RNA: tRNA
Organism: Caenorhabditis elegans
RNA sequence: GACUGCUUGGCGCAAUGGUAGCGCGUUCGACUCCAGAUCGAAAGGUUGGGCGUUCGAUCCGCUCAGUGGUCA
Numbered sequence: 001g002a003c004u005g006c007u008u009g010g011c012g013c014a015a016u017g018g019u020a021g022c023g024c025g026u027u028c029g030a031c032u033c034c035a036g037a038u039c040g041a042a043a044g045g046u047u048g049g050g051c052g053u054u055c056g057a058u059c060c061g062c063u064c065a066g067u068g069g070u071c072a
Base pairs, nucleotide, nucleotide: 001071002070003069004068005067006066007065010024011023012022013021026042027041028040029039030038048064049063050062051061052060